[Rfam]
RNA sequence: GGCGAGAAGAAGGUUUAAGGAGUGACAAACAAGCGCUUAUGUCGCUUAUCUGAGAACUCCUGGGAAGGUCUGAGAAAAGGUACUAUGUUAUGUGAAUCUUCCAGCAGGAGAGUGGCGUAAUACGCUGCAAGGUUCGUACUAGAAAAACGGCACACUUCAUAUAUGAUGAACGCAUGAGGGCUUCACUGGUGCCAGACGUGCAUAUAUGAAGUGUUGGAAGGAGACCCUCGUACCGGCUGUGCUUAGUGCAAUAACCAGGCAAACACAAUUCAGACUACUCUCUCGCC
Numbered sequence: 001g002g003c004g005a006g007a008a009g010a011a012g013g014u015u016u017a018a019g020g021a022g023u024g025a026c027a028a029a030c031a032a033g034c035g036c037u038u039a040u041g042u043c044g045c046u047u048a049u050c051u052g053a054g055a056a057c058u059c060c061u062g063g064g065a066a067g068g069u070c071u072g073a074g075a076a077a078a079g080g081u082a083c084u085a086u087g088u089u090a091u092g093u094g095a096a097u098c099u100u101c102c103a104g105c106a107g108g109a110g111a112g113u114g115g116c117g118u119a120a121u122a123c124g125c126u127g128c129a130a131g132g133u134u135c136g137u138a139c140u141a142g143a144a145a146a147a148c149g150g151c152a153c154a155c156u157u158c159a160u161a162u163a164u165g166a167u168g169a170a171c172g173c174a175u176g177a178g179g180g181c182u183u184c185a186c187u188g189g190u191g192c193c194a195g196a197c198g199u200g201c202a203u204a205u206a207u208g209a210a211g212u213g214u215u216g217g218a219a220g221g222a223g224a225c226c227c228u229c230g231u232a233c234c235g236g237c238u239g240u241g242c243u244u245a246g247u248g249c250a251a252u253a254a255c256c257a258g259g260c261a262a263a264c265a266c267a268a269u270u271c272a273g274a275c276u277a278c279u280c281u282c283u284c285g286c287c
Stems, first nucleotide, its partner, number of pairs: 001287007013256001015254002018061005031047005036041001070273005080233004097111005112128006131227002134224002151213003
A member of the RNA family "Nuclear RNase P" from Dracunculus medinensis, 287 nucleotides long. Rfam classes the family as a ribozyme. The match comes from Rfam's covariance-model search (108 bits). The base pairs follow the family's consensus structure, which is taken from published work. From the family's description: Ribonuclease P (RNase P) is a ubiquitous endoribonuclease, found in archaea, bacteria and eukarya as well as chloroplasts and mitochondria. Its best characterised activity is the generation of mature 5'-ends of tRNAs by cleaving the 5'-leader elements of precursor-tRNAs. Cellular RNase Ps are ribonucleoproteins. RNA from bacterial RNase Ps retains its catalytic activity in the absence of the protein subunit, i.e. it is a ribozyme.